[Rfam]
RNA sequence: GGCUGGUCCGAAGGUAGUGAGUUAUCUCAACUGAUGUUCACAGUUAUAGAUCAAGUGCCUUGUUUUACUUUUUCCCCUCUUCUCACUACCGCUCAUUUGACUAAUUUUAA
Dot-bracket structure: ((.(((((.((..((((((((............................................................))))))...))....))))))).))....
Rfam assigns this 110-nucleotide sequence from Theropithecus gelada to the family "Y RNA". Pairs were carried over by alignment from the consensus structure, which is taken from published work. From the family's description: Y RNAs are components of the Ro ribonucleoprotein particle (Ro RNP), in association with Ro60 and La proteins. The Y RNAs and Ro60 and La proteins are well conserved, but the function of the Ro RNP is not known. The family has 104 seed sequences and 26,986 matches in Rfam 15.1. Taxonomically the source falls in Theropithecus (Eukaryota, Mammalia, Haplorrhini, Simiiformes). A search with the family's covariance model found it, with a score of 51 bits.